[Rfam]
Nucleotides: 084
Base pairs, nucleotide, nucleotide: 007078008077009076010075011074012073013072014071015070016069017068018067021064022063024061025060026059027058028057
Number, partner (000 for none) and nucleotide at each position: 001000c002000a003000g004000a005000a006000a007078u008077a009076g010075g011074g012073g013072u014071u015070c016069c017068u018067u019000g020000c021064a022063g023000c024061c025060c026059a027058a028057a029000g030000c031000a032000a033000g034000c035000g036000c037000g038000a039000u040000a041000a042000a043000c044000a045000a046000g047000u048000u049000u050000g051000u052000g053000u054000g055000g056000c057028u058027u059026u060025g061024g062000a063022c064021u065000g066000a067018a068017g069016g070015g071014a072013g073012c074011u075010c076009c077008u078007a079000a080000u081000u082000c083000u084000u